[Rfam]
RNA: mir-92 microRNA precursor family
RNA sequence: CUUGCUGCGCAGGUUGGGAUCGGUGACAAUGCUGUGUGUGCACGUGCAGACGUAUUGCACUUGUCCCGGCCUGUACAGGAGUG
Numbered sequence: 001c002u003u004g005c006u007g008c009g010c011a012g013g014u015u016g017g018g019a020u021c022g023g024u025g026a027c028a029a030u031g032c033u034g035u036g037u038g039u040g041c042a043c044g045u046g047c048a049g050a051c052g053u054a055u056u057g058c059a060c061u062u063g064u065c066c067c068g069g070c071c072u073g074u075a076c077a078g079g080a081g082u083g
Stems, first nucleotide, its partner, number of pairs: 005078002009074006016067005022061003027057006033048002